[Rfam]
THF (Tetrahydrofolate) riboswitch aptamer: a 94-nucleotide RNA from Anaerobranca californiensis. On this family, see Huang et al., Proc Natl Acad Sci U S A 2011: "Long-range pseudoknot interactions dictate the regulatory response in the tetrahydrofolate riboswitch". The match comes from Rfam's covariance-model search (82 bits). From the family's description: Tetrahydrofolate (THF) riboswitch was first reported for Ames et al. as an RNA motif in 5' untranslated (5'-UTR)regions of folate transport and biosynthesis genes in Firmicutes genomes.

RNA sequence: GGCAGAGUAGAUACUAUGCGUUAAGUGCUUAGGGAUGGGAUGUCGCCCUAAGACGAAAGGUUUUGCCCUGCGGUAUAGUAUCGCGUCCGCUGUC
Numbered sequence: 001g002g003c004a005g006a007g008u009a010g011a012u013a014c015u016a017u018g019c020g021u022u023a024a025g026u027g028c029u030u031a032g033g034g035a036u037g038g039g040a041u042g043u044c045g046c047c048c049u050a051a052g053a054c055g056a057a058a059g060g061u062u063u064u065g066c067c068c069u070g071c072g073g074u075a076u077a078g079u080a081u082c083g084c085g086u087c088c089g090c091u092g093u094c
Base pairs, nucleotide, nucleotide: 001094002093003092004091005090010082011081012080013079014078015077016076017075018074019072020071021070025054026053028052029051030050031049032048033047034046038088039087040086041085042084058069059068060067